[Rfam]
RNA sequence: AUGGAUAUGAUGAUUAUUUCCCCAGAUGAUCGAAUCUGAAAUAACUGAGCGCUCAUUUUUUAUUUCUCUUUUCAGAGAAAUAUUCAAGCCAGAAAUCUGAUCCGU
Dot-bracket structure: (((((...............................................................................................)))))
The record is a 105-nucleotide sequence from Centaurea solstitialis, which matches "Small nucleolar RNA Z103" in Rfam. Rfam classes the family as a C/D-box small nucleolar RNA. On this family, see Chen et al., Nucleic Acids Res 2003: "The high diversity of snoRNAs in plants: identification and comparative study of 120 snoRNA genes from Oryza sativa". The family has 12 seed sequences and 2,844 matches in Rfam 15.1.